[Rfam]
RNA sequence: UUGCCCUAGAACCAAGUGUGGGUGUGGCCUGGAUCUUUGUUAUGGCGACCCAUCCUUGGUUUCUGAGGCUU
Numbered sequence: 001u002u003g004c005c006c007u008a009g010a011a012c013c014a015a016g017u018g019u020g021g022g023u024g025u026g027g028c029c030u031g032g033a034u035c036u037u038u039g040u041u042a043u044g045g046c047g048a049c050c051c052a053u054c055c056u057u058g059g060u061u062u063c064u065g066a067g068g069c070u071u
Stems, first nucleotide, its partner, number of pairs: 003069003007065001009062005015056002020051004027046003

A member of the RNA family "mir-551 microRNA precursor family" from Cyprinus carpio, 71 nucleotides long. For this family Rfam cites "Conservation of small RNA pathways in platypus" (Murchison et al., Genome Res, 2008). The sequence is in the family's curated seed alignment. The family's consensus secondary structure was predicted with RNAalifold.